[Rfam]
RNA sequence: GCUUGCAUAAUCCGGGUUUCUGGUUCAGCGAGCAGUAUGAAAAAAAUUCCCAAACGAUUUGACGUGUUCGUUGUCACAGAAACCUGCAUGAAGCAAGC
Numbered sequence: 001g002c003u004u005g006c007a008u009a010a011u012c013c014g015g016g017u018u019u020c021u022g023g024u025u026c027a028g029c030g031a032g033c034a035g036u037a038u039g040a041a042a043a044a045a046a047u048u049c050c051c052a053a054a055c056g057a058u059u060u061g062a063c064g065u066g067u068u069c070g071u072u073g074u075c076a077c078a079g080a081a082a083c084c085u086g087c088a089u090g091a092a093g094c095a096a097g098c
Stems, first nucleotide, its partner, number of pairs: 001098006013086009030069005